[Rfam]
RNA sequence: UGGCCGCAGAAUAAAUUAUUCUACGGCCACUUUGAGUUACGAUAAUUACUAUACUAAUUUACGAGAUUAUGGUAACUCCCUCAUAAGUGAUUUACUAUAGCAUUAUGGUAAGUAACACGGGUUAGUAACCCAUGUAUCGUAAAUAUGUAUUGUCAUUAUCGUAAAUUAGUACAAACAUUAUCGUAAAUCAAGGUAACCAUAGAAUAAGUUAUUGUGUGUGUG
Numbered sequence: 001u002g003g004c005c006g007c008a009g010a011a012u013a014a015a016u017u018a019u020u021c022u023a024c025g026g027c028c029a030c031u032u033u034g035a036g037u038u039a040c041g042a043u044a045a046u047u048a049c050u051a052u053a054c055u056a057a058u059u060u061a062c063g064a065g066a067u068u069a070u071g072g073u074a075a076c077u078c079c080c081u082c083a084u085a086a087g088u089g090a091u092u093u094a095c096u097a098u099a100g101c102a103u104u105a106u107g108g109u110a111a112g113u114a115a116c117a118c119g120g121g122u123u124a125g126u127a128a129c130c131c132a133u134g135u136a137u138c139g140u141a142a143a144u145a146u147g148u149a150u151u152g153u154c155a156u157u158a159u160c161g162u163a164a165a166u167u168a169g170u171a172c173a174a175a176c177a178u179u180a181u182c183g184u185a186a187a188u189c190a191a192g193g194u195a196a197c198c199a200u201a202g203a204a205u206a207a208g209u210u211a212u213u214g215u216g217u218g219u220g221u222g
Base pairs, nucleotide, nucleotide: 001222002221005218006217007216008215010213011212012211013210014209016207017206018205019204020203021202022201023200025198026197029194030193031192032191033190037186038185039184040183041182042181043180044179045178046177050173052171053170054169055168056167057166058165059164060163061162062161065160066159067158069156070155071154074150081141087137088136089135092132093127094126095125096124097123100122101121103119108116

MIR6217 microRNA precursor family: a 222-nucleotide sequence from Miscanthus lutarioriparius. Pairs were carried over by alignment from the consensus structure, which was predicted with RNAalifold. A search with the family's covariance model found it, with a score of 116 bits. Gene Ontology terms of the family: RISC complex and miRNA-mediated post-transcriptional gene silencing. The source organism's lineage runs through Eukaryota, Mesangiospermae, Andropogonodae, Andropogoneae and Miscanthus.